[Rfam]
Shown here is a 104-nucleotide RNA, a member of the family "cow-rumen-2 RNA".
The family's consensus secondary structure is taken from published work.

RNA sequence: UGUCGAGCAUAGCUUAGCAAACUAUGCAUUUGCCGCCAUGGCCUAACGCUAUAUAGCCGGAGUACAGGAUGACCGACCCGUAAGAGCGUUUAUAAGUCCCUCAG
Numbered sequence: 001u002g003u004c005g006a007g008c009a010u011a012g013c014u015u016a017g018c019a020a021a022c023u024a025u026g027c028a029u030u031u032g033c034c035g036c037c038a039u040g041g042c043c044u045a046a047c048g049c050u051a052u053a054u055a056g057c058c059g060g061a062g063u064a065c066a067g068g069a070u071g072a073c074c075g076a077c078c079c080g081u082a083a084g085a086g087c088g089u090u091u092a093u094a095a096g097u098c099c100c101u102c103a104g
Stems, first nucleotide, its partner, number of pairs: 007027006040099002042096001045090006058080003063075001067074002